Shown here is a 153-nucleotide RNA sequence from Kalanchoe fedtschenkoi, a member of the family "U4 spliceosomal RNA". It scores 89 bits against the family's covariance model.

RNA sequence: AUCUUUGUGCUUGGGGCAACGACGCAACUAGUGAGGUUCUAACCGAAGUGCGUCAAUUGUUGGUUGAAAACUAUUUCCAAACCCCCUCCUGGGCCUUGGCUUGUCUUUGGCCGUCGAUAAUUUCUGGAAGGGCUUCCUUUUAAAGGUAAAGUC
Number, nucleotide and partner (000 for none) at each position: 001a000002u000003c000004u000005u000006u000007g000008u000009g000010c000011u000012u000013g000014g000015g000016g000017c000018a000019a000020c000021g054022a053023c052024g051025c050026a000027a049028c048029u047030a000031g000032u000033g000034a000035g044036g043037u042038u000039c000040u000041a000042a037043c036044c035045g000046a000047a029048g028049u027050g025051c024052g023053u022054c021055a000056a000057u000058u000059g000060u000061u000062g000063g000064u000065u000066g000067a000068a000069a000070a000071c000072u000073a000074u000075u000076u000077c000078c000079a000080a000081a000082c000083c000084c000085c000086c000087u117088c116089c000090u000091g000092g112093g111094c110095c109096u000097u000098g105099g104100c000101u000102u000103g000104u099105c098106u000107u000108u000109g095110g094111c093112c092113g000114u000115c000116g088117a087118u000119a000120a000121u000122u000123u000124c000125u000126g000127g000128a000129a000130g000131g153132g152133c151134u150135u000136c000137c000138u000139u000140u000141u000142a000143a000144a000145g000146g000147u000148a000149a000150a134151g133152u132153c131
Lineage of the source: Eukaryota > Euphyllophyta > Mesangiospermae > eudicotyledons > Kalanchoe. Pairs were carried over by alignment from the consensus structure, which is taken from published work. On this family, see Zwieb, Nucleic Acids Res 1997: "The uRNA database".